Shown here is a 31-nucleotide sequence from Trichonephila inaurata, a member of the family "Iron response element II". The family's consensus secondary structure is taken from published work. On this family, see Dandekar et al., EMBO J 1991: "Identification of a novel iron-responsive element in murine and human erythroid delta-aminolevulinic acid synthase mRNA". Lineage of the source: Eukaryota > Eumetazoa > Panarthropoda > Nephilidae > Trichonephila inaurata. It scores 31 bits against the family's covariance model. By type it is a cis-regulatory element. IRE, TFRC, SLC40A1, SDHB, SLC11A2, CDC42BPA, ACO2, ALAS2_H.SAPIENS, CDC14A, EPAS1, ALAS2, qoxD, Hao1, NDUFS1, transferrin, Aconitate. Its family is annotated with response to iron ion in the Gene Ontology.
RNA sequence: AUAUCAUCAGAGACAGCGAUUUCUAUGAUUU
Numbered sequence: 001a002u003a004u005c006a007u008c009a010g011a012g013a014c015a016g017c018g019a020u021u022u023c024u025a026u027g028a029u030u031u
Stems, first nucleotide, its partner, number of pairs: 001031001003029005009024005014018001